mir-449 microRNA precursor family: an 88-nucleotide RNA sequence from Oryctolagus cuniculus. For this family Rfam cites "Small RNA expression and strain specificity in the rat" (Linsen et al., BMC Genomics, 2010). Its Rfam clan is "mir-34 clan". The organism belongs to Oryctolagus, within Eukaryota. The family's consensus secondary structure was predicted with RNAalifold.
RNA sequence: GGUGUGUGAUGAGGUGGCAGUGUAUUGUUAGCUGGUUGAAUAUGUGUGUGAUAUCAGCUAACAUACAACUGCUAUCUUAUUGCAUUUA
Dot-bracket structure: .(.((((((((((.((((((((((..((((((((((....(((....)))..)))))))))).))).))))))).)))))))))).).